[Rfam]
RNA sequence: AUGGACCACAUGGGGAGUCUAAGCAGAAGUGGCUUUAAAAGGCUUUUUAAGCGCUUGUUAAUAGGCUGAGAGGGAAGUGUGACUUCCGACCCAUCGAACCUGAUUCUGGAUAAUACCUGCGAAGGGAACGUGGCAAACCAAUGAA
Numbered sequence: 001a002u003g004g005a006c007c008a009c010a011u012g013g014g015g016a017g018u019c020u021a022a023g024c025a026g027a028a029g030u031g032g033c034u035u036u037a038a039a040a041g042g043c044u045u046u047u048u049a050a051g052c053g054c055u056u057g058u059u060a061a062u063a064g065g066c067u068g069a070g071a072g073g074g075a076a077g078u079g080u081g082a083c084u085u086c087c088g089a090c091c092c093a094u095c096g097a098a099c100c101u102g103a104u105u106c107u108g109g110a111u112a113a114u115a116c117c118u119g120c121g122a123a124g125g126g127a128a129c130g131u132g133g134c135a136a137a138c139c140a141a142u143g144a145a
Stems, first nucleotide, its partner, number of pairs: 006133004011093004017066005073087005099125003106119001108117002
The record is a 145-nucleotide RNA from Pullulanibacillus pueri, which matches "TPP riboswitch aptamer (THI element)" in Rfam. Vitamin B(1) in its active form thiamin pyrophosphate (TPP) is an essential coenzyme that is synthesised by coupling of pyrimidine and thiazole moieties in bacteria. The source organism's lineage runs through Bacteria, Bacillota, Bacilli, Sporolactobacillaceae and Pullulanibacillus.